[Rfam]
RNA: Alphaproteobacteria transfer-messenger RNA
Organism: Pseudogemmobacter humi
RNA sequence: GCGCUUGCACCCCAGCGCCGUGGCGCCUAUAUUGCCCCUGUCCGGGCGUAAGUCCGGACUAUGGCGAUAAACGCACCUGCAAUAGACGGCUCGGACCCGGGGGCGGUACCCGGCGGCUCCACCACUCUCCCCGGCGUUGCGGGAAAAUGGGGCCGAAACAGGAUCGACGGACGUUCAAAGAGGCCAGCUUUCGCCCGGUGAGCUACCACCGUUAUCGGUGCAUGAUCACAGUUGCCAACGACAACCGUGCUCCGGUGGCGAUGGCUGCGUAAGCAGCUCUCAAUACCAAACCUAAGUCCUUGCGCUUAGCCGCGUAAGGCGGGGCCCGCAGGAGCCUGGCAACAGAAUCCUGCACC
Dot-bracket structure: .......................................((((((((....))))))))...(((((.....((.(((........((..(((...(((((.......)))))(((((((............................)))))))............))).)).......)))...))..)))))((((..[[.[[[)))).....]]]]]....................................................................................................[[[[..((((((]]]]..........))))))...